[Rfam]
RNA sequence: AGGUCUUAAUUGACCAAGCCGAAGACAGCAGGUACCGGUAGCCCGGUAUAAGGAACGAACGCCUGCCGAGGAAAAGAGUUAACGUUUUUAACGCAGAUUUACGUAACUUAUCCUCUCUGUGGCUUCACAGGGAGGUUUUUUAUAUCAGGC
Numbered sequence: 001a002g003g004u005c006u007u008a009a010u011u012g013a014c015c016a017a018g019c020c021g022a023a024g025a026c027a028g029c030a031g032g033u034a035c036c037g038g039u040a041g042c043c044c045g046g047u048a049u050a051a052g053g054a055a056c057g058a059a060c061g062c063c064u065g066c067c068g069a070g071g072a073a074a075a076g077a078g079u080u081a082a083c084g085u086u087u088u089u090a091a092c093g094c095a096g097a098u099u100u101a102c103g104u105a106a107c108u109u110a111u112c113c114u115c116u117c118u119g120u121g122g123c124u125u126c127a128c129a130g131g132g133a134g135g136u137u138u139u140u141u142a143u144a145u146c147a148g149g150c
Base pairs, nucleotide, nucleotide: 028066029065030064031063032062033061034047035046036045112135113134114133115132116131117130118129119128120127121126
Dot-bracket structure: ...........................(((((((((........))).............)))))).............................................((((((((((....))))))))))...............
Shown here is a 150-nucleotide RNA sequence from Lachnospiraceae bacterium 3_1_57FAA_CT1, a member of the family "Ribosomal protein L10 leader". By type it is a cis-regulatory leader. The base pairs follow the family's consensus structure, which was predicted with CMfinder. This family is a putative r-protein leader autoregulatory structure found in B. subtilis and other low-GC Gram-positive bacteria.